[Rfam]
RNA sequence: UGCGCCCGGUCAGGAGAGAGCCCUUCUUGCAAGGGCCGCCGAAGGCGCAGGACCCAGCCGUCCAAACGCUCAGGCAAAAGGACUGACCCAGGUCG
Numbered sequence: 001u002g003c004g005c006c007c008g009g010u011c012a013g014g015a016g017a018g019a020g021c022c023c024u025u026c027u028u029g030c031a032a033g034g035g036c037c038g039c040c041g042a043a044g045g046c047g048c049a050g051g052a053c054c055c056a057g058c059c060g061u062c063c064a065a066a067c068g069c070u071c072a073g074g075c076a077a078a079a080g081g082a083c084u085g086a087c088c089c090a091g092g093u094c095g
Stems, first nucleotide, its partner, number of pairs: 008088006020036004038075003041071002045069003051062002

Rfam assigns this 95-nucleotide sequence from Pseudorhodoferax sp. Leaf267 to the family "Glycine riboswitch aptamer". The match comes from Rfam's covariance-model search (65 bits).